[Rfam]
RNA sequence: GCGCAUUCCGAGGGGAGCACUAGACGGUGCUGAGAUGGCGUUGAGCCGGACCCUUGAACCUGAUCCGGGUCAUGCCGGCGUAGGAACGGAAAGAAGGCCGCCA
Numbered sequence: 001g002c003g004c005a006u007u008c009c010g011a012g013g014g015g016a017g018c019a020c021u022a023g024a025c026g027g028u029g030c031u032g033a034g035a036u037g038g039c040g041u042u043g044a045g046c047c048g049g050a051c052c053c054u055u056g057a058a059c060c061u062g063a064u065c066c067g068g069g070u071c072a073u074g075c076c077g078g079c080g081u082a083g084g085a086a087c088g089g090a091a092a093g094a095a096g097g098c099c100g101c102c103a
Stems, first nucleotide, its partner, number of pairs: 006091005011054004017030005037047003059084004065078004
Dot-bracket structure: .....(((((((((..(((((....)))))......(((.....)))...))))....((((..((((......))))..))))..)))))............
RNA: TPP riboswitch aptamer (THI element)